[Rfam]
RNA sequence: CGGCGGGUAGGGCCGGGGGGUUCGCCCACCCCCAUACCCGAGGUGGGCGUAACGCGGGGGCCAGUAACCGCUCCAGGCCAUAUAUGGGGCUGCGGGAUCCUCACUCCAGCAAUGAAACCCGCCCCGUGGGGCUUGUGGUGGUGGGGGCCCUCUCGGAGGAGAGGGUCUAACCACCUUUACGAGGGGAAAGCGGCCAGGCCCGGAAGGGAGCAACCUAACCCUCGGCACAAGCGUUCACGGGUCACCGGGGGGAGCGGGGAGGGAGGGUUGAUCCCGCAGCUCUAUAUAUGGUUUGGAGCGGGGCCGCCU
Numbered sequence: 001c002g003g004c005g006g007g008u009a010g011g012g013c014c015g016g017g018g019g020g021u022u023c024g025c026c027c028a029c030c031c032c033c034a035u036a037c038c039c040g041a042g043g044u045g046g047g048c049g050u051a052a053c054g055c056g057g058g059g060g061c062c063a064g065u066a067a068c069c070g071c072u073c074c075a076g077g078c079c080a081u082a083u084a085u086g087g088g089g090c091u092g093c094g095g096g097a098u099c100c101u102c103a104c105u106c107c108a109g110c111a112a113u114g115a116a117a118c119c120c121g122c123c124c125c126g127u128g129g130g131g132c133u134u135g136u137g138g139u140g141g142u143g144g145g146g147g148c149c150c151u152c153u154c155g156g157a158g159g160a161g162a163g164g165g166u167c168u169a170a171c172c173a174c175c176u177u178u179a180c181g182a183g184g185g186g187a188a189a190g191c192g193g194c195c196a197g198g199c200c201c202g203g204a205a206g207g208g209a210g211c212a213a214c215c216u217a218a219c220c221c222u223c224g225g226c227a228c229a230a231g232c233g234u235u236c237a238c239g240g241g242u243c244a245c246c247g248g249g250g251g252g253a254g255c256g257g258g259g260a261g262g263g264a265g266g267g268u269u270g271a272u273c274c275c276g277c278a279g280c281u282c283u284a285u286a287u288a289u290g291g292u293u294u295g296g297a298g299c300g301g302g303g304c305c306g307c308c309u
Base pairs, nucleotide, nucleotide: 002308003307004306005305006304008302011062012061013060014059015033016032017031018030019029037058038057039056040055042053068301069300070299071298072297073296074295075294076293077292078291079290080289085284086283087282088281089280090279091278092277093276094275095274096273097268098267099266100265101264102263104261105260106259107257109255110254118249119248120247121246123241124240125239126238127237128236129235130234131232132231133230134229135228136227137226138177140175141174142173143172144171145168146167147166148165149164150163151162152161153160154159180224181223182222183221184220185219192215193214199208200207201206
Archaeal signal recognition particle RNA: a 309-nucleotide RNA from Desulfurococcaceae archaeon AG1. A reference for the family is Wild et al. (2002), "Towards the structure of the mammalian signal recognition particle", Curr Opin Struct Biol. Pairs were carried over by alignment from the consensus structure, which is taken from published work. Rfam links the family to the GO terms SRP-dependent cotranslational protein targeting to membrane, signal sequence recognition and signal recognition particle, plasma membrane targeting.